The record is a 127-nucleotide sequence from Lentilactobacillus hilgardii, which matches "Enterococcus sRNA 68 (Lacto-3 RNA)" in Rfam.
Rfam's curators put it in the seed alignment.
Lineage of the source: Bacteria > Bacilli > Lactobacillales > Lactobacillaceae > Lentilactobacillus hilgardii.
RNA sequence: UGCGAUGAGUCGAGAAAGAUCACGCAGUUUUAUACUGUUCGCGCAAGCGGCUAGGUGAUGUUUUUAGAUACGGGGCACAUUUUAAGCACGGAUUUGUGGUGUCUGACUUUAGAGGAUUGUGGAGUCC
Numbered sequence: 001u002g003c004g005a006u007g008a009g010u011c012g013a014g015a016a017a018g019a020u021c022a023c024g025c026a027g028u029u030u031u032a033u034a035c036u037g038u039u040c041g042c043g044c045a046a047g048c049g050g051c052u053a054g055g056u057g058a059u060g061u062u063u064u065u066a067g068a069u070a071c072g073g074g075g076c077a078c079a080u081u082u083u084a085a086g087c088a089c090g091g092a093u094u095u096g097u098g099g100u101g102u103c104u105g106a107c108u109u110u111a112g113a114g115g116a117u118u119g120u121g122g123a124g125u126c127c
Stems, first nucleotide, its partner, number of pairs: 019059005024038005039050004074103005087098003115126004